[Rfam]
RNA: Small nucleolar RNA SNORD95
RNA sequence: AGGGCGGUGAUGAUUCCAACAUGCCAUCUGAGUGCCCAUGCUGAAACCCAGAGGCUGUUUCUGAGCUG
Numbered sequence: 001a002g003g004g005c006g007g008u009g010a011u012g013a014u015u016c017c018a019a020c021a022u023g024c025c026a027u028c029u030g031a032g033u034g035c036c037c038a039u040g041c042u043g044a045a046a047c048c049c050a051g052a053g054g055c056u057g058u059u060u061c062u063g064a065g066c067u068g
Stems, first nucleotide, its partner, number of pairs: 005068004